[Rfam]
RNA sequence: AAACCCUCGACUACACUCCGAGAUCUACCACGCUCCCCAUGGUUUAUUUCGAUUUUUGUUUCGAGGAAGAUGAACAGCUCUUCGGAGCAGAGCCCAAUACUCACCGCGACAUCCAAUACACCAUGGAAGUCGAGGUCCACCAACGUGGCUCACAU
Numbered sequence: 001a002a003a004c005c006c007u008c009g010a011c012u013a014c015a016c017u018c019c020g021a022g023a024u025c026u027a028c029c030a031c032g033c034u035c036c037c038c039a040u041g042g043u044u045u046a047u048u049u050c051g052a053u054u055u056u057u058g059u060u061u062c063g064a065g066g067a068a069g070a071u072g073a074a075c076a077g078c079u080c081u082u083c084g085g086a087g088c089a090g091a092g093c094c095c096a097a098u099a100c101u102c103a104c105c106g107c108g109a110c111a112u113c114c115a116a117u118a119c120a121c122c123a124u125g126g127a128a129g130u131c132g133a134g135g136u137c138c139a140c141c142a143a144c145g146u147g148g149c150u151c152a153c154a155u
Base pairs, nucleotide, nucleotide: 007064008063009062019051020050021049022048023047024046027043028042029041091150092149093148094147104135105134107132109130110129112127113126114125
Shown here is a 155-nucleotide RNA sequence from Colletotrichum gloeosporioides, a member of the family "Small nucleolar RNA snR80". The family's RNA type in Rfam is H/ACA-box small nucleolar RNA. Pairs were carried over by alignment from the consensus structure, which was predicted with WAR. Clan: SNORA28 clan. For this family Rfam cites "Genome-wide searching for pseudouridylation guide snoRNAs: analysis of the Saccharomyces cerevisiae genome" (Schattner et al., Nucleic Acids Res, 2004). The family has 6 seed sequences and 447 matches in Rfam 15.1. The organism belongs to Colletotrichum gloeosporioides, within Eukaryota. Rfam links the family to the GO terms nucleolus and RNA processing.